Rfam assigns this 55-nucleotide RNA sequence from Streptomyces sp. S4.7 to the family "L17-Actino-Proteobacteria ribosomal protein leader".
RNA sequence: CCCAGGGCAGCCGCUCUGGGGGAACUGACACCGGUACCUGAUACGGCCGGUGCAG
Numbered sequence: 001c002c003c004a005g006g007g008c009a010g011c012c013g014c015u016c017u018g019g020g021g022g023a024a025c026u027g028a029c030a031c032c033g034g035u036a037c038c039u040g041a042u043a044c045g046g047c048c049g050g051u052g053c054a055g
Base pairs, nucleotide, nucleotide: 001020002019003018004017005016006015007014008013025055026054027053029052030051031050032049033048034047035046
NCBI's taxonomy places the organism under Bacteria, Actinomycetota, Actinomycetes, Streptomycetaceae, Streptomyces.